Rfam assigns this 284-nucleotide RNA sequence from Ktedonobacteria bacterium brp13 to the family "HNH endonuclease-associated RNA and ORF (HEARO) RNA". The match comes from Rfam's covariance-model search (96 bits). Rfam 15.1 lists 952 matches to the family in 249 species.
RNA sequence: GUCAGGAACCCUGUCCCCUAAACGGGACGGGCUUGUAGAGAUGGGGUGGUUUCUGCCCGUCUUCUCUGCGAGCUUACCUGACCAGUCCCAGCCAGGACUGUUCCUUGCAUGCCCCUUGGGGCGGGAAACGGUUAUCGGGCUACGAUAGCGGCAAUGUUCAAGAACGUACCAAUGCGUGCAUGCCAGCGCAUUGCUCUAUAACUUCUGAGUUAACCAGGUCUACGAGGGUUAAGCCAGUGCUCAGGAGACGUGCAGACCGCUAUCAUCGACGAGGCACACAUUAC
Numbered sequence: 001g002u003c004a005g006g007a008a009c010c011c012u013g014u015c016c017c018c019u020a021a022a023c024g025g026g027a028c029g030g031g032c033u034u035g036u037a038g039a040g041a042u043g044g045g046g047u048g049g050u051u052u053c054u055g056c057c058c059g060u061c062u063u064c065u066c067u068g069c070g071a072g073c074u075u076a077c078c079u080g081a082c083c084a085g086u087c088c089c090a091g092c093c094a095g096g097a098c099u100g101u102u103c104c105u106u107g108c109a110u111g112c113c114c115c116u117u118g119g120g121g122c123g124g125g126a127a128a129c130g131g132u133u134a135u136c137g138g139g140c141u142a143c144g145a146u147a148g149c150g151g152c153a154a155u156g157u158u159c160a161a162g163a164a165c166g167u168a169c170c171a172a173u174g175c176g177u178g179c180a181u182g183c184c185a186g187c188g189c190a191u192u193g194c195u196c197u198a199u200a201a202c203u204u205c206u207g208a209g210u211u212a213a214c215c216a217g218g219u220c221u222a223c224g225a226g227g228g229u230u231a232a233g234c235c236a237g238u239g240c241u242c243a244g245g246a247g248a249c250g251u252g253c254a255g256a257c258c259g260c261u262a263u264c265a266u267c268g269a270c271g272a273g274g275c276a277c278a279c280a281u282u283a284c
Base pairs, nucleotide, nucleotide: 001082002081003080004079005078006077008075010031011030013028014027017025018024032072033071034070035069036068037067038066039065040064041063085270086269087268090141091140092139093138144264145263146262147261148260149259166199167198170193171192172191173190174189175188176187177186181276182275183274184273202247203246204245205244206243207242208241209240210239215237217235218234220233221232222230
Dot-bracket structure: ((((((.(.((.((..((.....)).)).))((((((((((.....................))))))))))..).))))))..(((..((((............................................))))..((((((................((..((((((((...[[[[.))))))))....))..(((((((((....(.((.(((.......).)))).).)))))))))...........))))))...)))..]]]]........